Shown here is an 81-nucleotide RNA from Atta cephalotes, a member of the family "mir-31 microRNA precursor family".
The match comes from Rfam's covariance-model search (62 bits).
[Rfam]
RNA sequence: GGACGUCUAGAAGGCAAGAUGUCGGCAUAGCUGAUGUUGUUUGAAAUUCGGCUGUGUCACAUCCAGCCAACCAAACGGCCA
Numbered sequence: 001g002g003a004c005g006u007c008u009a010g011a012a013g014g015c016a017a018g019a020u021g022u023c024g025g026c027a028u029a030g031c032u033g034a035u036g037u038u039g040u041u042u043g044a045a046a047u048u049c050g051g052c053u054g055u056g057u058c059a060c061a062u063c064c065a066g067c068c069a070a071c072c073a074a075a076c077g078g079c080c081a
Base pairs, nucleotide, nucleotide: 005076006075008073010071013068014067015066018063019062020061021060024058025057026056027055028054029053030052031051
A reference for the family is Aravin et al. (2003), "The small RNA profile during Drosophila melanogaster development", Dev Cell. The family is grouped with related families in Rfam's "mir-31 microRNA precursor family".